[Rfam]
RNA sequence: UACACAAAGCAUAUGAUGAGCAAGCACUGAAACUGACUCUCUGUGAAGUCCAUUCAAUCCAAUACUGAGCUUUGUGUC
Numbered sequence: 001u002a003c004a005c006a007a008a009g010c011a012u013a014u015g016a017u018g019a020g021c022a023a024g025c026a027c028u029g030a031a032a033c034u035g036a037c038u039c040u041c042u043g044u045g046a047a048g049u050c051c052a053u054u055c056a057a058u059c060c061a062a063u064a065c066u067g068a069g070c071u072u073u074g075u076g077u078c
Stems, first nucleotide, its partner, number of pairs: 002077009
Shown here is a 78-nucleotide sequence from Bucorvus abyssinicus, a member of the family "Small nucleolar RNA SNORD69". Rfam classes the family as a C/D-box small nucleolar RNA. Rfam describes the family as follows. snoRNA HBII-210 belongs to the C/D family of snoRNAs. It is the human orthologue of the mouse MBII-210 and is predicted to guide the 2'O-ribose methylation of large 28S rRNA on residue G4464. The organism belongs to Bucorvus, within Eukaryota. The base pairs follow the family's consensus structure.